A member of the RNA family "Caenorhabditis snoRNA ceN86" from Caenorhabditis brenneri, 127 nucleotides long. For this family Rfam cites "Systematic identification of non-coding RNA 2,2,7-trimethylguanosine cap structures in Caenorhabditis elegans" (Jia et al., BMC Mol Biol, 2007). The organism belongs to Caenorhabditis, within Eukaryota. Gene Ontology terms of the family: nucleolus and RNA processing. Rfam 15.1 lists 9 matches to the family in 8 species. A search with the family's covariance model found it, with a score of 45 bits.
RNA sequence: UUGCAGCUGAGCUCGAGAAGUUUCUCCCGUGAGAGAUCCAUAUAUCAAAUGUUACGAAAGUGACAAUGCUCUUUAUUCGGGCUUCUAAAUACCUUGUUCAUCACGCGAUGAUGUGGUCAUAAUUUUU
Numbered sequence: 001u002u003g004c005a006g007c008u009g010a011g012c013u014c015g016a017g018a019a020g021u022u023u024c025u026c027c028c029g030u031g032a033g034a035g036a037u038c039c040a041u042a043u044a045u046c047a048a049a050u051g052u053u054a055c056g057a058a059a060g061u062g063a064c065a066a067u068g069c070u071c072u073u074u075a076u077u078c079g080g081g082c083u084u085c086u087a088a089a090u091a092c093c094u095u096g097u098u099c100a101u102c103a104c105g106c107g108a109u110g111a112u113g114u115g116g117u118c119a120u121a122a123u124u125u126u127u
Stems, first nucleotide, its partner, number of pairs: 003055001005053001013047001015045001017043001021036006066120003070116002074113004081106002084103001089098001